[Rfam]
RNA sequence: GCAGAAACGGCAAACCCGUCGAGAGGCGGGGACGCAAAGUCACGGGGCCCGUUGAAGGGCCGGCCGGGCUGCCUCGU
Numbered sequence: 001g002c003a004g005a006a007a008c009g010g011c012a013a014a015c016c017c018g019u020c021g022a023g024a025g026g027c028g029g030g031g032a033c034g035c036a037a038a039g040u041c042a043c044g045g046g047g048c049c050c051g052u053u054g055a056a057g058g059g060c061c062g063g064c065c066g067g068g069c070u071g072c073c074u075c076g077u
Stems, first nucleotide, its partner, number of pairs: 001077001003074002010035002015030006033063001038070004043066003046061003

Rfam assigns this 77-nucleotide RNA from a Nitriliruptorales bacterium to the family "c-di-GMP-I-GGC riboswitch aptamer". Gene Ontology term of the family: cyclic-di-GMP binding. The match comes from Rfam's covariance-model search (60 bits).